[Rfam]
RNA: Repression of heat shock gene expression (ROSE) element
Organism: Roseicella aerolata
RNA sequence: CCGAAUGCCGCAACCGGGUUCGGCGGGCGCCGGGCAGGCGCUCCGGUGCCCAUACCCAUGUCGCUCAGAGGAGGAUGUGGCUAUGAGGA
Numbered sequence: 001c002c003g004a005a006u007g008c009c010g011c012a013a014c015c016g017g018g019u020u021c022g023g024c025g026g027g028c029g030c031c032g033g034g035c036a037g038g039c040g041c042u043c044c045g046g047u048g049c050c051c052a053u054a055c056c057c058a059u060g061u062c063g064c065u066c067a068g069a070g071g072a073g074g075a076u077g078u079g080g081c082u083a084u085g086a087g088g089a
Stems, first nucleotide, its partner, number of pairs: 001023006008017002028048007049087001051085004056080007064073003
Dot-bracket structure: ((((((.((......))))))))....(((((((.......)))))))(.((((.(((((((.(((....)))))))))).)))).)..